[Rfam]
RNA sequence: GCCAGGUGCUGUGGCGCGCGCCUGUAAUCCCGCUGCUGGGAGGCUGAGGUUGCCGGAUUGCUUGAGGUCGGGAGUUCUGGGCUGGUGAUCUCUAUGCCGAUUGAGUGUCUGCACUACGAUCAGUGUCCUCAUGGUGCUCCUCGGGGAGCUUGGGAACACCAGGUGUGUUAAAGAGGGGUGAACCAGCCCAGGUCGGAAACAGAGCAGGUCAAAGCCUCUGUGCUGUUCAGUCGUGGGAUAGCACCCGUGAAUAGAUACAGCAGUGCAGCCUGACCAAUACAGCGAGACGCAUCCUUUA
Numbered sequence: 001g002c003c004a005g006g007u008g009c010u011g012u013g014g015c016g017c018g019c020g021c022c023u024g025u026a027a028u029c030c031c032g033c034u035g036c037u038g039g040g041a042g043g044c045u046g047a048g049g050u051u052g053c054c055g056g057a058u059u060g061c062u063u064g065a066g067g068u069c070g071g072g073a074g075u076u077c078u079g080g081g082c083u084g085g086u087g088a089u090c091u092c093u094a095u096g097c098c099g100a101u102u103g104a105g106u107g108u109c110u111g112c113a114c115u116a117c118g119a120u121c122a123g124u125g126u127c128c129u130c131a132u133g134g135u136g137c138u139c140c141u142c143g144g145g146g147a148g149c150u151u152g153g154g155a156a157c158a159c160c161a162g163g164u165g166u167g168u169u170a171a172a173g174a175g176g177g178g179u180g181a182a183c184c185a186g187c188c189c190a191g192g193u194c195g196g197a198a199a200c201a202g203a204g205c206a207g208g209u210c211a212a213a214g215c216c217u218c219u220g221u222g223c224u225g226u227u228c229a230g231u232c233g234u235g236g237g238a239u240a241g242c243a244c245c246c247g248u249g250a251a252u253a254g255a256u257a258c259a260g261c262a263g264u265g266c267a268g269c270c271u272g273a274c275c276a277a278u279a280c281a282g283c284g285a286g287a288c289g290c291a292u293c294c295u296u297u298a
Stems, first nucleotide, its partner, number of pairs: 001044003004023006028041003046296004051291003058285005066275007077268003081264004086259002091255005097249001102247002105244004109237002112235003116231001118228002121225006128165001130163001132161005138155004143150002168172001174219006186209003193202001195200001
Dot-bracket structure: (((((((((........))))))....(((........)))))).((((.(((....(((((...(((((((....(((.((((.((...(((((.(....((.((((((.(((.(.((.((((((.(.(.(((((.((((.((....)).)))).))))).).)..(...).((((((......(((....(.(....).)....)))....)))))))))))).))..).)))))...)))).)).).)))))..)).)))).)))))))))).....)))))...))).))))..